[Rfam]
RNA sequence: ACUGCUGCUGGCGGUGAUGCCGAUGAUGCGGGCUGGAGCUGGGGUGCUACGUCACCGUUGUCAUCGUCAUCACCAUCAUC
Numbered sequence: 001a002c003u004g005c006u007g008c009u010g011g012c013g014g015u016g017a018u019g020c021c022g023a024u025g026a027u028g029c030g031g032g033c034u035g036g037a038g039c040u041g042g043g044g045u046g047c048u049a050c051g052u053c054a055c056c057g058u059u060g061u062c063a064u065c066g067u068c069a070u071c072a073c074c075a076u077c078a079u080c
Stems, first nucleotide, its partner, number of pairs: 003075002006072002009069009021060005027054002029051002031048003